This 97-nucleotide RNA sequence from Peptacetobacter hiranonis belongs to the Rfam family "azaaromatic riboswitch aptamer (yjdF RNA)". Taxonomically the source falls in Peptacetobacter hiranonis (Bacteria, Bacillota, Clostridia, Peptostreptococcales). Pairs were carried over by alignment from the consensus structure, which is taken from published work.
[Rfam]
RNA sequence: AACAACAUAGAUAAAAACACAGUUCGGUUGGUAGUCCGGACGCGGAAUUUCCGUAAGUAACCUGCCUCCUUGGUUGUCCAUUCUAUGUAUUUUACAA
Numbered sequence: 001a002a003c004a005a006c007a008u009a010g011a012u013a014a015a016a017a018c019a020c021a022g023u024u025c026g027g028u029u030g031g032u033a034g035u036c037c038g039g040a041c042g043c044g045g046a047a048u049u050u051c052c053g054u055a056a057g058u059a060a061c062c063u064g065c066c067u068c069c070u071u072g073g074u075u076g077u078c079c080a081u082u083c084u085a086u087g088u089a090u091u092u093u094a095c096a097a
Stems, first nucleotide, its partner, number of pairs: 005088007022041006042054005064074003